The record is a 113-nucleotide sequence from Paraburkholderia humisilvae, which matches "Group II catalytic intron D1-D4-2" in Rfam. The family has 144 seed sequences and 1,231 matches in Rfam 15.1. On this family, see Bonen and Vogel, Trends Genet 2001: "The ins and outs of group II introns". NCBI's taxonomy places the organism under Bacteria, Pseudomonadati, Betaproteobacteria, Burkholderiaceae, Paraburkholderia. Pairs were carried over by alignment from the consensus structure.

[Rfam]
RNA sequence: GAAAGAAGGCAUCCCGGCGUCUUGCAGCGGAGGAUUCAGACCACCCGGCGCUGCUGUGUUUUAAAGGCAUGGUUGUAAACGACCGGGGAAGUCAUCCGCAGAGGAUGGCUGAG
Numbered sequence: 001g002a003a004a005g006a007a008g009g010c011a012u013c014c015c016g017g018c019g020u021c022u023u024g025c026a027g028c029g030g031a032g033g034a035u036u037c038a039g040a041c042c043a044c045c046c047g048g049c050g051c052u053g054c055u056g057u058g059u060u061u062u063a064a065a066g067g068c069a070u071g072g073u074u075g076u077a078a079a080c081g082a083c084c085g086g087g088g089a090a091g092u093c094a095u096c097c098g099c100a101g102a103g104g105a106u107g108g109c110u111g112a113g
Base pairs, nucleotide, nucleotide: 001015004012016037017036018033020031021030022029041113044087045086046085047084048083050076051075053073054072055071057069058068059067060066091109092108093107094106095105096104